[Rfam]
Molybdenum/Tungsten riboswitch aptamer (Moco RNA motif): a 144-nucleotide sequence from Pseudidiomarina salinarum. The source organism's lineage runs through Bacteria, Gammaproteobacteria, Alteromonadales, Idiomarinaceae and Pseudidiomarina.
RNA sequence: AUAGCGCCAUCACACGCCGAGCCGCUGUGUCUAAAUCCGCUUGCCGGACACGACCAGUGUGCCGUGGUCUUACUGACCACCGGGGUUACGCUGGAAACGGCGUUACCUCCCGUUAUCUGGAAAGGUGUCGCUUAUGCUUAUGGA
Numbered sequence: 001a002u003a004g005c006g007c008c009a010u011c012a013c014a015c016g017c018c019g020a021g022c023c024g025c026u027g028u029g030u031c032u033a034a035a036u037c038c039g040c041u042u043g044c045c046g047g048a049c050a051c052g053a054c055c056a057g058u059g060u061g062c063c064g065u066g067g068u069c070u071u072a073c074u075g076a077c078c079a080c081c082g083g084g085g086u087u088a089c090g091c092u093g094g095a096a097a098c099g100g101c102g103u104u105a106c107c108u109c110c111c112g113u114u115a116u117c118u119g120g121a122a123a124g125g126u127g128u129c130g131c132u133u134a135u136g137c138u139u140a141u142g143g144a
Stems, first nucleotide, its partner, number of pairs: 003138002006135001011130001012128004018124001021062002023059005029054003036048003064080005083108004088103006109120002